[Rfam]
RNA: Bacterial RNase P class A
Organism: Alcanivorax borkumensis
RNA sequence: CGGACCGGUUAGACAGUCGCUGGCGGUGGUUCUUUUAAAGAAUGGCCGCUGGAGGAAAGUCCGGGCUCCAAAGGGCAGGGUGCCAGGUAACGCCUGGGGGCCACACUGGGAACGGUGUGGUUACGGCUAGUGCCACAGAGAAGAUACCGCCUUUUCCUUCCUCGCGUUGGAAUCGGUAAGGGUGAAAAGGUGCGGUAAGAGCGCACCGCGCUGCUGGUAACAGUGGUGGCAGGGUAAACCCCACCCGGAGCAAAACCAAAUAGGGAUCCGUUGGCGUGGCCCGCGCUGGAUCCGGGUAGGUUGCUAGAGGUUUGUGGCGACGCAAACCCAAGAUGAAUGACUGUCCACGACAGAACCCGGCUUAUCGACCGGUCCACCUU
Numbered sequence: 001c002g003g004a005c006c007g008g009u010u011a012g013a014c015a016g017u018c019g020c021u022g023g024c025g026g027u028g029g030u031u032c033u034u035u036u037a038a039a040g041a042a043u044g045g046c047c048g049c050u051g052g053a054g055g056a057a058a059g060u061c062c063g064g065g066c067u068c069c070a071a072a073g074g075g076c077a078g079g080g081u082g083c084c085a086g087g088u089a090a091c092g093c094c095u096g097g098g099g100g101c102c103a104c105a106c107u108g109g110g111a112a113c114g115g116u117g118u119g120g121u122u123a124c125g126g127c128u129a130g131u132g133c134c135a136c137a138g139a140g141a142a143g144a145u146a147c148c149g150c151c152u153u154u155u156c157c158u159u160c161c162u163c164g165c166g167u168u169g170g171a172a173u174c175g176g177u178a179a180g181g182g183u184g185a186a187a188a189g190g191u192g193c194g195g196u197a198a199g200a201g202c203g204c205a206c207c208g209c210g211c212u213g214c215u216g217g218u219a220a221c222a223g224u225g226g227u228g229g230c231a232g233g234g235u236a237a238a239c240c241c242c243a244c245c246c247g248g249a250g251c252a253a254a255a256c257c258a259a260a261u262a263g264g265g266a267u268c269c270g271u272u273g274g275c276g277u278g279g280c281c282c283g284c285g286c287u288g289g290a291u292c293c294g295g296g297u298a299g300g301u302u303g304c305u306a307g308a309g310g311u312u313u314g315u316g317g318c319g320a321c322g323c324a325a326a327c328c329c330a331a332g333a334u335g336a337a338u339g340a341c342u343g344u345c346c347a348c349g350a351c352a353g354a355a356c357c358c359g360g361c362u363u364a365u366c367g368a369c370c371g372g373u374c375c376a377c378c379u380u
Stems, first nucleotide, its partner, number of pairs: 002375009011365001012345007020052008057363003061360005066250004073282004078246005083097005098124001099122010125241002130239002132235003147181002149177003154172004189207006208230001209228008254302004264293006273287005309328008